[Rfam]
Overview: This 115-nucleotide sequence from Paraoerskovia marina belongs to the Rfam family "SAM (S-adenosyl methionine) riboswitch aptamer". The family has 40 seed sequences and 2,360 matches in Rfam 15.1. Clan: SAM clan. The family's consensus secondary structure is taken from published work. Rfam describes the family as follows. SAM-IV is a mRNA element that regulates gene expression via direct sensing of S-adenosylmethionine (SAM or AdoMet). SAM-IV riboswitches share conserved nucleotide positions with the previously described SAM-I riboswitches sequence analysis and molecular recognition experiments suggest that SAM-I and SAM-IV riboswitches share similar ligand binding sites, but have different scaffolds. Taxonomically the source falls in Paraoerskovia (Bacteria, Bacillati, Actinomycetota, Cellulomonadaceae).
RNA sequence: GGUCAUGAGGCCCCGUGGUAUCGCCCUCCGGCGUGCGGGACCGGCAACCGCGCCAGUGCGCACGGUGCUCCCGGAGGAAGACCCGCCCCCGCCGCCGGUGGGGGAAGCGCACCAC
Numbered sequence: 001g002g003u004c005a006u007g008a009g010g011c012c013c014c015g016u017g018g019u020a021u022c023g024c025c026c027u028c029c030g031g032c033g034u035g036c037g038g039g040a041c042c043g044g045c046a047a048c049c050g051c052g053c054c055a056g057u058g059c060g061c062a063c064g065g066u067g068c069u070c071c072c073g074g075a076g077g078a079a080g081a082c083c084c085g086c087c088c089c090c091g092c093c094g095c096c097g098g099u100g101g102g103g104g105a106a107g108c109g110c111a112c113c114a115c
Stems, first nucleotide, its partner, number of pairs: 001083004009042001012039005022033002043069003048065003052061002086104008